[Rfam]
RNA sequence: UGCCGAAGUUUUCCUCAGCAGUUAACUGCAGCCGAUUCUUUAAAAUUUCGGCAGUUAACUGCCGAUGAACAU
Dot-bracket structure: ...........((.((.((((((((((((.....................)))))))))))).)).))....
Numbered sequence: 001u002g003c004c005g006a007a008g009u010u011u012u013c014c015u016c017a018g019c020a021g022u023u024a025a026c027u028g029c030a031g032c033c034g035a036u037u038c039u040u041u042a043a044a045a046u047u048u049c050g051g052c053a054g055u056u057a058a059c060u061g062c063c064g065a066u067g068a069a070c071a072u
Stems, first nucleotide, its partner, number of pairs: 012068002015065002018062012
A member of the RNA family "MIR2629 microRNA precursor family" from Medicago truncatula, 72 nucleotides long.
A search with the family's covariance model found it, with a score of 69 bits.